RNA sequence: CACUUAUCAAGAGUGACUGAGGGAUCAGGCCCGAUGAUGUCCGGCAACCCCCUAAUAUGGGAAAGGUGCCACUUCCUGCGGAAUGAAAACAUUCUGGGAGAUAAGUC
Numbered sequence: 001c002a003c004u005u006a007u008c009a010a011g012a013g014u015g016a017c018u019g020a021g022g023g024a025u026c027a028g029g030c031c032c033g034a035u036g037a038u039g040u041c042c043g044g045c046a047a048c049c050c051c052c053u054a055a056u057a058u059g060g061g062a063a064a065g066g067u068g069c070c071a072c073u074u075c076c077u078g079c080g081g082a083a084u085g086a087a088a089a090c091a092u093u094c095u096g097g098g099a100g101a102u103a104a105g106u107c
Stems, first nucleotide, its partner, number of pairs: 002106007013042001015041003021032003026078004043070004048066002051061003074099001079096006